[Rfam]
RNA: Makes More Granules Regulator RNA (mmgR)
RNA sequence: UGUUGCUGCCCUCCUUGGGCGUUUCCUCCCUAGACUUGGGCCGCUCGAAAGAGCGGCCUUUUUCUUGUCCGCU
Numbered sequence: 001u002g003u004u005g006c007u008g009c010c011c012u013c014c015u016u017g018g019g020c021g022u023u024u025c026c027u028c029c030c031u032a033g034a035c036u037u038g039g040g041c042c043g044c045u046c047g048a049a050a051g052a053g054c055g056g057c058c059u060u061u062u063u064c065u066u067g068u069c070c071g072c073u
Stems, first nucleotide, its partner, number of pairs: 008020004039058008